[Rfam]
Nucleotides: 109
Base pairs, nucleotide, nucleotide: 001109002108003107004106005105006104007103008102013042014041015040016039017038021031022030023029025079026078027077028076043071044070045069046068048067049066051063052062053061075101080098081097082096083095084094085093
Number, partner (000 for none) and nucleotide at each position: 001109u002108u003107c004106u005105u006104a007103u008102c009000a010000a011000g012000a013042g014041a015040g016039a017038u018000g019000g020000a021031g022030g023029g024000a025079c026078u027077g028076g029023c030022c031021c032000g033000a034000u035000g036000a037000a038017a039016u040015c041014u042013c043071a044070g045069c046068a047000a048067c049066a050000g051063g052062c053061u054000a055000u056000a057000u058000c059000a060000a061053a062052g063051u064000a065000c066049u067048g068046u069045g070044c071043u072000a073000a074000c075101u076028c077027c078026a079025g080098c081097g082096a083095a084094c085093g086000c087000a088000a089000u090000a091000g092000g093085c094084g095083u096082u097081u098080g099000a100000a101075a102008g103007a104006u105005g106004a107003g108002g109001a
A member of the RNA family "SAM riboswitch aptamer (S box leader)" from Bacillus thuringiensis, 109 nucleotides long. Its family is annotated with regulation of gene expression in the Gene Ontology.